The record is a 134-nucleotide RNA from Centaurea solstitialis, which matches "small nucleolar RNA snoR126" in Rfam. NCBI's taxonomy places the organism under Eukaryota, Embryophyta, Euphyllophyta, Gunneridae, Centaurea.

RNA sequence: AGGUAAUGAUGAAAAAAAACAUUUCUCGAUUCUGAUUUGAAUUGCUUGAAAUUUGAUCAUGGCUGAAUAAAAUUCUCCAUUUUCUUGUGAUUAAGCAGUAUUUUGAUGACCGAAUUUGUGCGUGUCUGAACCUC
Numbered sequence: 001a002g003g004u005a006a007u008g009a010u011g012a013a014a015a016a017a018a019a020c021a022u023u024u025c026u027c028g029a030u031u032c033u034g035a036u037u038u039g040a041a042u043u044g045c046u047u048g049a050a051a052u053u054u055g056a057u058c059a060u061g062g063c064u065g066a067a068u069a070a071a072a073u074u075c076u077c078c079a080u081u082u083u084c085u086u087g088u089g090a091u092u093a094a095g096c097a098g099u100a101u102u103u104u105g106a107u108g109a110c111c112g113a114a115u116u117u118g119u120g121c122g123u124g125u126c127u128g129a130a131c132c133u134c
Base pairs, nucleotide, nucleotide: 001133002132003131004130

It scores 46 bits against the family's covariance model. It is annotated as a C/D-box small nucleolar RNA. On this family, see Chen and Wu, Nucleic Acids Res 2009: "Mining small RNA sequencing data: a new approach to identify small nucleolar RNAs in Arabidopsis".